RNA sequence: AGGACGGGCCUUUCAGGCAUCCUCUCCCAAGACUUCAAAGGCCCGGUCGGCAACGACCGGGCCAUUUUUUUACCAGAU
Numbered sequence: 001a002g003g004a005c006g007g008g009c010c011u012u013u014c015a016g017g018c019a020u021c022c023u024c025u026c027c028c029a030a031g032a033c034u035u036c037a038a039a040g041g042c043c044c045g046g047u048c049g050g051c052a053a054c055g056a057c058c059g060g061g062c063c064a065u066u067u068u069u070u071u072a073c074c075a076g077a078u
Stems, first nucleotide, its partner, number of pairs: 008018004040063009
Description: Shown here is a 78-nucleotide sequence from Novosphingobium flavum, a member of the family "Makes More Granules Regulator RNA (mmgR)". The family is grouped with related families in Rfam's "suhB sRNA clan". Rfam 15.1 lists 1,791 matches to the family in 918 species. The match comes from Rfam's covariance-model search (54 bits). It is annotated as a small RNA.